[Rfam]
RNA sequence: GCUGAAUCGGGAGGCGCUGAAGUCCGCUUUGCCUCGCAACACCACAACUCUGCAUACGGUCACCUGAAGCGGAUGGAGCCACUGGUGAGACCGACCCGAGAAGGA
Numbered sequence: 001g002c003u004g005a006a007u008c009g010g011g012a013g014g015c016g017c018u019g020a021a022g023u024c025c026g027c028u029u030u031g032c033c034u035c036g037c038a039a040c041a042c043c044a045c046a047a048c049u050c051u052g053c054a055u056a057c058g059g060u061c062a063c064c065u066g067a068a069g070c071g072g073a074u075g076g077a078g079c080c081a082c083u084g085g086u087g088a089g090a091c092c093g094a095c096c097c098g099a100g101a102a103g104g105a
Stems, first nucleotide, its partner, number of pairs: 002104002007099005013080003022074008058092002060088005